[Rfam]
This 84-nucleotide sequence from Medicago truncatula belongs to the Rfam family "MIR2617 microRNA precursor family". Rfam links the family to the GO terms RISC complex and miRNA-mediated post-transcriptional gene silencing.

RNA sequence: AGUGUGACAUAUCCGUUUGGGUUUUACUCUGAUGUUGAAUUAUUAUUAUUUAAUUGAUUUUGGGAAACGGGGUGUUACAGGCAC
Numbered sequence: 001a002g003u004g005u006g007a008c009a010u011a012u013c014c015g016u017u018u019g020g021g022u023u024u025u026a027c028u029c030u031g032a033u034g035u036u037g038a039a040u041u042a043u044u045a046u047u048a049u050u051u052a053a054u055u056g057a058u059u060u061u062g063g064g065a066a067a068c069g070g071g072g073u074g075u076u077a078c079a080g081g082c083a084c
Base pairs, nucleotide, nucleotide: 003079004078005077006076007075008074009073010072012071013070014069015068016067017066